[Rfam]
Notes
A member of the RNA family "epsC RNA" from Lederbergia lenta, 116 nucleotides long. Taxonomically the source falls in Lederbergia (Bacteria, Bacillati, Bacilli, Bacillaceae). By type it is a cis-regulatory element. The family has 30 seed sequences and 450 matches in Rfam 15.1.

RNA sequence: CGGUUAUGUCUCCUACCCGUUAUCAUCGGAGGUACUCGGCUGUACUGUGGGUGGAUGAUUCUACCUUAGAUGCAUUUGUUAUCAAUAGUAUGGCGUGAGGGUGGGUUAGAUGCCUG
Numbered sequence: 001c002g003g004u005u006a007u008g009u010c011u012c013c014u015a016c017c018c019g020u021u022a023u024c025a026u027c028g029g030a031g032g033u034a035c036u037c038g039g040c041u042g043u044a045c046u047g048u049g050g051g052u053g054g055a056u057g058a059u060u061c062u063a064c065c066u067u068a069g070a071u072g073c074a075u076u077u078g079u080u081a082u083c084a085a086u087a088g089u090a091u092g093g094c095g096u097g098a099g100g101g102u103g104g105g106u107u108a109g110a111u112g113c114c115u116g
Stems, first nucleotide, its partner, number of pairs: 001019003007034007035099004039094008049066007069083004102116005